Rfam assigns this 73-nucleotide sequence from Canis lupus to the family "mir-872 microRNA precursor family". The literature on the family includes a 2010 paper in Mol Hum Reprod by Ahn et al., "MicroRNA transcriptome in the newborn mouse ovaries determined by massive parallel sequencing". It is one of the family's seed sequences. Pairs were carried over by alignment from the consensus structure, which was predicted with RNAalifold.
RNA sequence: UUGUUAGAAGGUUAUGUGUUAGCUCAAGGCUUCAUUAUUUCCUGCCUGACCUAUUGAAGUAGCCUUCUAACGG
Numbered sequence: 001u002u003g004u005u006a007g008a009a010g011g012u013u014a015u016g017u018g019u020u021a022g023c024u025c026a027a028g029g030c031u032u033c034a035u036u037a038u039u040u041c042c043u044g045c046c047u048g049a050c051c052u053a054u055u056g057a058a059g060u061a062g063c064c065u066u067c068u069a070a071c072g073g
Stems, first nucleotide, its partner, number of pairs: 001073001003071005009065007020053003024049003028045001